[Rfam]
RNA: Group II catalytic intron D1-D4-7
RNA sequence: CCCGGUGUUCUGUCACCGGUUUCCUACCACGGCAUGCAUCGACGGUAACGACUUUGUAUGAAGCCCGUGGGACAAUGUACCGAAGGCGGCAACGCCUCUUGAAGAAGAGUAAUCAGACUCAAGUGCUGGAAGUUUCAUCCGGUAUAGGGC
Numbered sequence: 001c002c003c004g005g006u007g008u009u010c011u012g013u014c015a016c017c018g019g020u021u022u023c024c025u026a027c028c029a030c031g032g033c034a035u036g037c038a039u040c041g042a043c044g045g046u047a048a049c050g051a052c053u054u055u056g057u058a059u060g061a062a063g064c065c066c067g068u069g070g071g072a073c074a075a076u077g078u079a080c081c082g083a084a085g086g087c088g089g090c091a092a093c094g095c096c097u098c099u100u101g102a103a104g105a106a107g108a109g110u111a112a113u114c115a116g117a118c119u120c121a122a123g124u125g126c127u128g129g130a131a132g133u134u135u136c137a138u139c140c141g142g143u144a145u146a147g148g149g150c
Stems, first nucleotide, its partner, number of pairs: 002019006028069005033060006041052001043050002084097005098123004107114002125143006